[Rfam]
RNA: tRNA
Organism: Candidatus Nanobsidianus stetteri
RNA sequence: GCCGCGGUGCCCGAGUGGCCCAAGGGGAUGGAUUGCUAAUCCAUUCCCCGAAAGGGGGCGUGGGUUCAAAUCCCACCCGCGGCG
Numbered sequence: 001g002c003c004g005c006g007g008u009g010c011c012c013g014a015g016u017g018g019c020c021c022a023a024g025g026g027g028a029u030g031g032a033u034u035g036c037u038a039a040u041c042c043a044u045u046c047c048c049c050g051a052a053a054g055g056g057g058g059c060g061u062g063g064g065u066u067c068a069a070a071u072c073c074c075a076c077c078c079g080c081g082g083c084g
Stems, first nucleotide, its partner, number of pairs: 001083007010026003028044005060076005